[Rfam]
RNA sequence: GUAUACGAGAACUAGAUAAAAUACUCGUAUACAUAUUGGACAACAGAAAAUAACUAUUAGGCCUAGGGAAUGAAUCCCUCUCAGCGAAGGCCGAAAGGAGGCUAGCCAUGCCCUUAGUAGGACUAGCAUAAUGAGGGGGGUAGCAACAGUGGUGAGUUCGUUGGAUGGCUUAAGCCCUGAGUACAGGGUAGUCGUCAGUGGUUCGACGCCUCGGUAUAAAGGUCUCGAGAUGCCACGUGGACGAGGGCACGCCCAAAGCACAUCUUAACCUGAGCGGGGGUCGCCCAGGCAAAAGCAGAUCGACCAAUCUGUUACGAAUACAGCCUGAUAGGGUGCUGCAGAGGCCCACUGUAUUGCUACUAAAAAUCUCUGCUGUACAUGGCAC
Numbered sequence: 001g002u003a004u005a006c007g008a009g010a011a012c013u014a015g016a017u018a019a020a021a022u023a024c025u026c027g028u029a030u031a032c033a034u035a036u037u038g039g040a041c042a043a044c045a046g047a048a049a050a051u052a053a054c055u056a057u058u059a060g061g062c063c064u065a066g067g068g069a070a071u072g073a074a075u076c077c078c079u080c081u082c083a084g085c086g087a088a089g090g091c092c093g094a095a096a097g098g099a100g101g102c103u104a105g106c107c108a109u110g111c112c113c114u115u116a117g118u119a120g121g122a123c124u125a126g127c128a129u130a131a132u133g134a135g136g137g138g139g140g141u142a143g144c145a146a147c148a149g150u151g152g153u154g155a156g157u158u159c160g161u162u163g164g165a166u167g168g169c170u171u172a173a174g175c176c177c178u179g180a181g182u183a184c185a186g187g188g189u190a191g192u193c194g195u196c197a198g199u200g201g202u203u204c205g206a207c208g209c210c211u212c213g214g215u216a217u218a219a220a221g222g223u224c225u226c227g228a229g230a231u232g233c234c235a236c237g238u239g240g241a242c243g244a245g246g247g248c249a250c251g252c253c254c255a256a257a258g259c260a261c262a263u264c265u266u267a268a269c270c271u272g273a274g275c276g277g278g279g280g281u282c283g284c285c286c287a288g289g290c291a292a293a294a295g296c297a298g299a300u301c302g303a304c305c306a307a308u309c310u311g312u313u314a315c316g317a318a319u320a321c322a323g324c325c326u327g328a329u330a331g332g333g334u335g336c337u338g339c340a341g342a343g344g345c346c347c348a349c350u351g352u353a354u355u356g357c358u359a360c361u362a363a364a365a366a367u368c369u370c371u372g373c374u375g376u377a378c379a380u381g382g383c384a385c
Stems, first nucleotide, its partner, number of pairs: 001032009077138006084127002089124002091121002096115003100112003139361007146352007153322002156319006163265005168259004174189006192244005198236005203228004208223004245254003269289004274284004296311005323334004336375001338373006
Shown here is a 385-nucleotide RNA from Orthopestivirus bovis, a member of the family "Pestivirus internal ribosome entry site (IRES) including 5'UTR SLI". Pairs were carried over by alignment from the consensus structure. About the family: This family represents the internal ribosome entry site (IRES) of the the pestiviruses. The pestivirus IRES allows cap and end-independent translation of mRNA in the host cell. The IRES achieves this by mediating the internal initiation of translation by recruiting a ribosomal 43S pre-initiation complex directly to the initiation codon and eliminates the requirement for eIF4F. The classical swine virus UTR described in appears to be longer at the 5' end than other pestivirus UTRs. This family represents the conserved core. Clan: IRES1 clan. Rfam's curators put it in the seed alignment. Its family is annotated with ribosome binding in the Gene Ontology.